Overview
Shown here is a 96-nucleotide sequence from Tetracentron sinense, a member of the family "Plastid-rps12 3UTR RNA". The family has 1,299 seed sequences and 1,710 matches in Rfam 15.1. It is annotated as a cis-regulatory element. From the family's description: Plastid rpl20 is a non-coding RNA (ncRNA) recognised in plastids. It was found in the three prime untranslated region (3UTR) of rps12 gene, its 3UTR location sugest a role in transcript maduration. On this family, see Richter et al., Plant Commun 2023: "Retrograde signaling in plants: A critical review focusing on the GUN pathway and beyond".
RNA sequence: GGUUUCCAUUGGUGCAAAUCCAAUCACCUCAAUUCGAGAUGAGAAGCAAUACCCCAUUGAUAGCAAAUGAUUAUCAUAAAGCGGGAAAAUAUAGAU
Numbered sequence: 001g002g003u004u005u006c007c008a009u010u011g012g013u014g015c016a017a018a019u020c021c022a023a024u025c026a027c028c029u030c031a032a033u034u035c036g037a038g039a040u041g042a043g044a045a046g047c048a049a050u051a052c053c054c055c056a057u058u059g060a061u062a063g064c065a066a067a068u069g070a071u072u073a074u075c076a077u078a079a080a081g082c083g084g085g086a087a088a089a090u091a092u093a094g095a096u
Stems, first nucleotide, its partner, number of pairs: 009023004053085003056077002059075005